[Rfam]
RNA sequence: UGCAUCUGAAGCUCAAAGAGGAUGAGAACCUCCGAAGGAGGUUUGAGCCGAGCGUAGCGAGACAACGUUGCUUUAGCAACGGCCCGCAGGGGAAUAAUCCUCUCUCGCCGACCA
Numbered sequence: 001u002g003c004a005u006c007u008g009a010a011g012c013u014c015a016a017a018g019a020g021g022a023u024g025a026g027a028a029c030c031u032c033c034g035a036a037g038g039a040g041g042u043u044u045g046a047g048c049c050g051a052g053c054g055u056a057g058c059g060a061g062a063c064a065a066c067g068u069u070g071c072u073u074u075a076g077c078a079a080c081g082g083c084c085c086g087c088a089g090g091g092g093a094a095u096a097a098u099c100c101u102c103u104c105u106c107g108c109c110g111a112c113c114a
Stems, first nucleotide, its partner, number of pairs: 015105001017103005023097001042088001044086002049059002066081006

RtT RNA: a 114-nucleotide sequence from Cedecea neteri. Its family is annotated with cellular response to amino acid starvation in the Gene Ontology. A reference for the family is Bosl and Kersten (1991), "A novel RNA product of the tyrT operon of Escherichia coli", Nucleic Acids Res. Pairs were carried over by alignment from the consensus structure, which is taken from published work. About the family: This family represents a bacterial cis-regulatory element known as RtT RNA. The exact function of RtT is unknown although it is thought that it may be involved in changing the cellular response in relation to amino acid starvation. Rfam 15.1 lists 651 matches to the family in 204 species.